[Rfam]
The family of this 88-nucleotide RNA from Streptomyces scabiei is "dauA ncRNA motif".
dauA ncRNA motif was reported as a strong cis regulatory motif candidate, with potential to be a cis regulatory riboswitch type, it have been identified in genomes of the genus Streptomyces.
A reference for the family is Narunsky et al. (2024), "The discovery of novel noncoding RNAs in 50 bacterial genomes", Nucleic Acids Res.
The sequence is in the family's curated seed alignment.
The family's RNA type in Rfam is cis-regulatory element.
RNA sequence: UCGUCCCUGCCGGGAGUGCGCCCAGGGAGCCGGGACUACGGCACCCGCGCGUCCGCUGCCGGACGGCCCUGCGAACCGAGGCGUCAUG
Numbered sequence: 001u002c003g004u005c006c007c008u009g010c011c012g013g014g015a016g017u018g019c020g021c022c023c024a025g026g027g028a029g030c031c032g033g034g035a036c037u038a039c040g041g042c043a044c045c046c047g048c049g050c051g052u053c054c055g056c057u058g059c060c061g062g063a064c065g066g067c068c069c070u071g072c073g074a075a076c077c078g079a080g081g082c083g084u085c086a087u088g
Stems, first nucleotide, its partner, number of pairs: 002083004010062004015057004019051003025046003029042004064078003